[Rfam]
RNA sequence: UGGCCCAUCAGGGUAAUGGAUACCUGCUUUUUUAUU
Numbered sequence: 001u002g003g004c005c006c007a008u009c010a011g012g013g014u015a016a017u018g019g020a021u022a023c024c025u026g027c028u029u030u031u032u033u034a035u036u
Stems, first nucleotide, its partner, number of pairs: 003014004017026003
Shown here is a 36-nucleotide RNA sequence from Sus scrofa, a member of the family "XIST RNA A repeat". The base pairs follow the family's consensus structure, which was predicted with CMfinder. Rfam classes the family as a small RNA. On this family, see Duszczyk et al., RNA 2011: "The Xist RNA A-repeat comprises a novel AUCG tetraloop fold and a platform for multimerization".